[Rfam]
RNA sequence: GGCAGUUCUCAGGUGACACCUCAGUAUCCGGCUCCCUCCUCUCUGAUUUCAGGUGUGUCACCCGAGAACUGUA
Numbered sequence: 001g002g003c004a005g006u007u008c009u010c011a012g013g014u015g016a017c018a019c020c021u022c023a024g025u026a027u028c029c030g031g032c033u034c035c036c037u038c039c040u041c042u043c044u045g046a047u048u049u050c051a052g053g054u055g056u057g058u059c060a061c062c063c064g065a066g067a068a069c070u071g072u073a
Stems, first nucleotide, its partner, number of pairs: 002072002005069006012062005017055005024049001026047003030043002
RNA: mir-9223 microRNA precursor family
Organism: Pipistrellus kuhlii